[Rfam]
RNA sequence: UUUGGAGCGGAGUGGGCUUGGCCUCUUCUGCCUCCCGACUCUAUCAAGUCCUAGGUUGCAGCCGCCCCCGCCGCUGUUUUGGUGGCUGACUUUCAGCGGGCUGGGGGGUCCUGGAGAGGUGCAGAAGGGAGCGAGAGAAAAACGUCAGCUGAGGCCAGGCGGCCCCACCCGUGUCCCGUCCGUCUUGUCCGGGCCAGGCCCCGGCCCGAACCCCCUGGGGACGCCUCCCGCGGCACCUGCGCUCGCCCGCGGAGCCCCGGCUGCCCACGAGCGGAGGCGGCGGCCGUCUCGGGGCCCCCGCAUGCGGGGCGCCCACUGCGGCCGCCAAGAGUUCGGCUCUGUCAGCCUCGGGGGGCGCCGCGGACCGCGGGUUGAGCUCCAAGGUCUGGCGGGGAGCGGGGGCCACAGGGAGAACAACCGUGAGCGGCGUCCAGCCUUUAGGGCGCUCCCUCGAGAGGUGGAAGCUGCCCCGCGGGCACCGCUCAGACAACC
Numbered sequence: 001u002u003u004g005g006a007g008c009g010g011a012g013u014g015g016g017c018u019u020g021g022c023c024u025c026u027u028c029u030g031c032c033u034c035c036c037g038a039c040u041c042u043a044u045c046a047a048g049u050c051c052u053a054g055g056u057u058g059c060a061g062c063c064g065c066c067c068c069c070g071c072c073g074c075u076g077u078u079u080u081g082g083u084g085g086c087u088g089a090c091u092u093u094c095a096g097c098g099g100g101c102u103g104g105g106g107g108g109u110c111c112u113g114g115a116g117a118g119g120u121g122c123a124g125a126a127g128g129g130a131g132c133g134a135g136a137g138a139a140a141a142a143c144g145u146c147a148g149c150u151g152a153g154g155c156c157a158g159g160c161g162g163c164c165c166c167a168c169c170c171g172u173g174u175c176c177c178g179u180c181c182g183u184c185u186u187g188u189c190c191g192g193g194c195c196a197g198g199c200c201c202c203g204g205c206c207c208g209a210a211c212c213c214c215c216u217g218g219g220g221a222c223g224c225c226u227c228c229c230g231c232g233g234c235a236c237c238u239g240c241g242c243u244c245g246c247c248c249g250c251g252g253a254g255c256c257c258c259g260g261c262u263g264c265c266c267a268c269g270a271g272c273g274g275a276g277g278c279g280g281c282g283g284c285c286g287u288c289u290c291g292g293g294g295c296c297c298c299c300g301c302a303u304g305c306g307g308g309g310c311g312c313c314c315a316c317u318g319c320g321g322c323c324g325c326c327a328a329g330a331g332u333u334c335g336g337c338u339c340u341g342u343c344a345g346c347c348u349c350g351g352g353g354g355g356c357g358c359c360g361c362g363g364a365c366c367g368c369g370g371g372u373u374g375a376g377c378u379c380c381a382a383g384g385u386c387u388g389g390c391g392g393g394g395a396g397c398g399g400g401g402g403c404c405a406c407a408g409g410g411a412g413a414a415c416a417a418c419c420g421u422g423a424g425c426g427g428c429g430u431c432c433a434g435c436c437u438u439u440a441g442g443g444c445g446c447u448c449c450c451u452c453g454a455g456a457g458g459u460g461g462a463a464g465c466u467g468c469c470c471c472g473c474g475g476g477c478a479c480c481g482c483u484c485a486g487a488c489a490a491c492c
Base pairs, nucleotide, nucleotide: 005176007174008171009170010169014165015164016163017162019157020156021155022154023153066107067106068105070101071099072098073097074096075095076094085149086148087147088146089145090144091142092141093140214409215408216407217406219404220403242376243375244374245372246371247370248369255363256362258360259359260358279326280325281324282323283322284321285320286319287318291314292313293312328340329339330338331337422484423483424482425481426480427479429477430476431475432474441470442469443468444467445466447463449461450460
RNA: Vertebrate telomerase RNA